[Rfam]
RNA: MIR2619 microRNA precursor family
Organism: Medicago truncatula
RNA sequence: AAAUCGUCUCAUAAGUUUUGCAACUGUAGCAGUUUCGGUCCCCAAGGCCAAUUUUUGGUAAAAAAAUAUAAAAAAUAACAUGUGGCACCUCACUUAGGGUGCCACGUCAACGUAGACCGAGUCAUAAUUGGCCUUGGGGGUCAAAACUACCACAGAUGCAAAACUUAAGGGGCGGUUU
Numbered sequence: 001a002a003a004u005c006g007u008c009u010c011a012u013a014a015g016u017u018u019u020g021c022a023a024c025u026g027u028a029g030c031a032g033u034u035u036c037g038g039u040c041c042c043c044a045a046g047g048c049c050a051a052u053u054u055u056u057g058g059u060a061a062a063a064a065a066a067u068a069u070a071a072a073a074a075a076u077a078a079c080a081u082g083u084g085g086c087a088c089c090u091c092a093c094u095u096a097g098g099g100u101g102c103c104a105c106g107u108c109a110a111c112g113u114a115g116a117c118c119g120a121g122u123c124a125u126a127a128u129u130g131g132c133c134u135u136g137g138g139g140g141u142c143a144a145a146a147c148u149a150c151c152a153c154a155g156a157u158g159c160a161a162a163a164c165u166u167a168a169g170g171g172g173c174g175g176u177u178u
Stems, first nucleotide, its partner, number of pairs: 001178002004175005012167011024155004029150001031148005037142009080107002083104007